[Rfam]
RNA sequence: AAUAUGAAACUGACUGAAUAGGUAGGGUCAUUUUUCUGUGACUGCACAUGGCCCUACCUAUUCAGUUAGUUCCAUAUU
Numbered sequence: 001a002a003u004a005u006g007a008a009a010c011u012g013a014c015u016g017a018a019u020a021g022g023u024a025g026g027g028u029c030a031u032u033u034u035u036c037u038g039u040g041a042c043u044g045c046a047c048a049u050g051g052c053c054c055u056a057c058c059u060a061u062u063c064a065g066u067u068a069g070u071u072c073c074a075u076a077u078u
Stems, first nucleotide, its partner, number of pairs: 001078006008071023037048004

Shown here is a 78-nucleotide sequence from Pan troglodytes, a member of the family "mir-3136 microRNA precursor family". The base pairs follow the family's consensus structure, which was predicted with RNAalifold. The family has 2 seed sequences and 16 matches in Rfam 15.1. Lineage of the source: Eukaryota > Bilateria > Sarcopterygii > Theria > Pan. Rfam's curators put it in the seed alignment. Its family is annotated with miRNA-mediated post-transcriptional gene silencing and RISC complex in the Gene Ontology.